This 553-nucleotide part of an RNA from Anaerococcus prevotii belongs to the Rfam family "Bacterial small subunit ribosomal RNA".
The family's consensus secondary structure is taken from published work.
The source organism's lineage runs through Bacteria, Bacillati, Bacillota, Tissierellales and Anaerococcus prevotii.
Rfam's curators put it in the seed alignment.
RNA sequence: AUUUAUGAGAGUUUGAUCCUGGCUCAGGAUAAACGCUGGCGGCGUGCAUAACACAUGCAAGUCGAACGAUGAAGCUUAAAUGAUCUCUUCGGAGUGACCUUAAGUGGAUUAGUGGCGGACGGGUGAGUAACGCGUGAGUAACCUGCCUUGCACAAGGGGAUAGCCGUUGGAAACGACGAAUAAUACCCUAUGAUAUGAUAGCCUCGCAUGAAGCUAUCAUCAAAGAUUUAUCGGUGUAAGAUGGACUCGCGUCUGAUUAGCUAGUUGGUGGGGUAACAGCUCACCAAGGCAACGAUCAGUAGCCGGCUUGAGAGAGUGUACGGCCACAUUGGGACUGAGACACGGCCCAGACUCCUACGGGAGGCAGCAGUGGGGAAUUUUGCACAAUGGGGGCAACCCUGAUGCAGCGACGCCGCGUGAUUUAGAAGGCCUUCGGGUUGUAAAAAUCUUUUGUAUGGGAAGAAAAUGACAGUACCAUACGAAUAAGGACCGGCUAAUUACGUGCCAGCAGCCGCGGUAAUACGUAAGGUCCGAGCGUUGUCCGGAAUCAUUG
Number, nucleotide and partner (000 for none) at each position: 001a000002u000003u000004u000005a000006u000007g000008a000009g025010a024011g023012u022013u021014u000015g000016a000017u000018c000019c000020u000021g013022g012023c011024u010025c009026a000027g543028g542029a541030u540031a000032a539033a538034c537035g536036c535037u534038g000039g416040c415041g414042g413043c412044g411045u409046g408047c374048a000049u000050a000051a000052c372053a371054c370055a000056u369057g368058c367059a000060a000061g116062u115063c114064g000065a000066a113067c112068g000069a109070u108071g000072a000073a000074g000075c000076u000077u000078a000079a000080a000081u000082g099083a000084u097085c096086u000087c094088u093089u000090c000091g000092g000093a088094g087095u000096g085097a084098c000099c082100u000101u000102a000103a000104g000105u000106g000107g000108a070109u069110u000111a000112g067113u066114g063115g062116c061117g000118g000119a000120c000121g000122g000123g327124u326125g325126a000127g000128u000129a000130a000131c000132g252133c251134g250135u249136g248137a247138g246139u245140a000141a000142c244143c243144u000145g000146c000147c240148u239149u238150g237151c236152a235153c234154a000155a189156g188157g187158g186159g000160a000161u000162a000163g000164c000165c178166g177167u176168u175169g174170g000171a000172a000173a000174c169175g168176a167177c166178g165179a000180a000181u000182a000183a000184u000185a000186c158187c157188c156189u155190a000191u000192g000193a000194u000195a220196u219197g218198a217199u216200a215201g214202c000203c000204u211205c210206g000207c000208a000209u000210g205211a204212a000213g000214c201215u200216a199217u198218c197219a196220u195221c000222a000223a000224a000225g232226a231227u000228u000229u000230a000231u226232c225233g000234g153235u152236g151237u150238a149239a148240g147241a000242u000243g143244g142245a139246c138247u137248c136249g135250c134251g133252u132253c299254u298255g297256a000257u000258u000259a000260g290261c289262u288263a000264g000265u287266u286267g285268g284269u283270g282271g281272g280273g000274u000275a000276a000277c000278a000279g000280c272281u271282c270283a269284c268285c267286a266287a265288g262289g261290c260291a000292a000293c000294g000295a000296u000297c255298a254299g253300u000301a000302g324303c323304c322305g321306g317307c316308u315309u314310g000311a000312g000313a000314g309315a308316g307317u306318g000319u000320a000321c305322g304323g303324c302325c125326a124327c123328a000329u350330u349331g348332g347333g346334a000335c000336u000337g000338a000339g000340a000341c000342a000343c000344g000345g000346c333347c332348c331349a330350g329351a000352c363353u362354c361355c360356u000357a000358c000359g000360g355361g354362a353363g352364g000365c000366a000367g058368c057369a056370g054371u053372g052373g000374g047375g000376a000377a000378u000379u000380u406381u000382g405383c404384a403385c000386a000387a000388u401389g400390g399391g398392g397393g000394c000395a000396a000397c392398c391399c390400u389401g388402a000403u384404g383405c382406a380407g000408c046409g045410a000411c044412g043413c042414c041415g040416c039417g000418u000419g448420a447421u446422u445423u000424a000425g000426a000427a000428g439429g438430c437431c436432u000433u000434c000435g000436g431437g430438u429439u428440g000441u000442a000443a000444a000445a422446a421447u420448c419449u000450u000451u000452u000453g480454u479455a478456u477457g476458g475459g000460a000461a000462g470463a000464a000465a000466a000467u000468g000469a000470c462471a000472g000473u000474a000475c458476c457477a456478u455479a454480c453481g000482a000483a000484u000485a000486a000487g532488g531489a530490c529491c528492g000493g000494c000495u000496a000497a000498u527499u526500a525501c524502g523503u000504g000505c000506c000507a000508g515509c514510a000511g000512c000513c000514g509515c508516g000517g000518u000519a000520a000521u000522a000523c502524g501525u500526a499527a498528g491529g490530u489531c488532c487533g000534a037535g036536c035537g034538u033539u032540g030541u029542c028543c027544g000545g000546a000547a000548u000549c000550a000551u000552u000553g000